[Rfam]
The family of this 102-nucleotide sequence from Fusibacter sp. 3D3 is "Purine riboswitch aptamer".
RNA sequence: ACAAGAUUAUUCGCAAAUACUCAUAUAUUUCCGAAAUGAUGGCUUGGAUGUUUCUACGCAGUUGCCGAUAAUUACUGCACUAUGGGUUGUGGCUUUUAAUUU
Numbered sequence: 001a002c003a004a005g006a007u008u009a010u011u012c013g014c015a016a017a018u019a020c021u022c023a024u025a026u027a028u029u030u031c032c033g034a035a036a037u038g039a040u041g042g043c044u045u046g047g048a049u050g051u052u053u054c055u056a057c058g059c060a061g062u063u064g065c066c067g068a069u070a071a072u073u074a075c076u077g078c079a080c081u082a083u084g085g086g087u088u089g090u091g092g093c094u095u096u097u098a099a100u101u102u
Stems, first nucleotide, its partner, number of pairs: 019087007030048005058078005064072001
The match comes from Rfam's covariance-model search (63 bits).